RNA sequence: UCAAAAGCCGCUAGGGUUCCGGCUCAGAUGUUCUGAGUGUCUGGUCCGAGAGCGCGCGGCCCCGGUGUUCGGGGUUACACGGCGGGACAAAAGCCCGGGA
Number, nucleotide and partner (000 for none) at each position: 001u000002c000003a000004a000005a000006a000007g057008c056009c054010g053011c052012u000013a000014g047015g046016g000017u000018u000019c044020c043021g041022g038023c037024u036025c035026a034027g033028a000029u000030g000031u000032u000033c027034u026035g025036a024037g023038u022039g000040u000041c021042u000043g020044g019045u000046c015047c014048g000049a000050g000051a000052g011053c010054g009055c000056g008057c007058g076059g075060c074061c073062c072063c071064g070065g000066u000067g000068u000069u000070c064071g063072g062073g061074g060075u059076u058077a000078c098079a000080c000081g000082g000083c000084g096085g095086g094087a000088c000089a000090a000091a000092a000093g000094c086095c085096c084097g000098g078099g000100a000